Source information: This 102-nucleotide RNA sequence from Theropithecus gelada belongs to the Rfam family "Y RNA". By type it is a non-coding RNA gene. It scores 55 bits against the family's covariance model. NCBI's taxonomy places the organism under Eukaryota, Craniata, Primates, Cercopithecoidea, Theropithecus. The family's consensus secondary structure is taken from published work.
RNA sequence: GACUGGUCGAAGUAUAGUGAUGUUUACUAUUAGUUGAUCACAACCAGUUACAGAUUUCUUUGUUCCUUCUCCACUCCCACUGCUUCACUUGAUUAGCCUUAA
Numbered sequence: 001g002a003c004u005g006g007u008c009g010a011a012g013u014a015u016a017g018u019g020a021u022g023u024u025u026a027c028u029a030u031u032a033g034u035u036g037a038u039c040a041c042a043a044c045c046a047g048u049u050a051c052a053g054a055u056u057u058c059u060u061u062g063u064u065c066c067u068u069c070u071c072c073a074c075u076c077c078c079a080c081u082g083c084u085u086c087a088c089u090u091g092a093u094u095a096g097c098c099u100u101a102a
Base pairs, nucleotide, nucleotide: 001098003096004095005094006093007092008091010090011089016081017080018079019078022076029063030062032060033059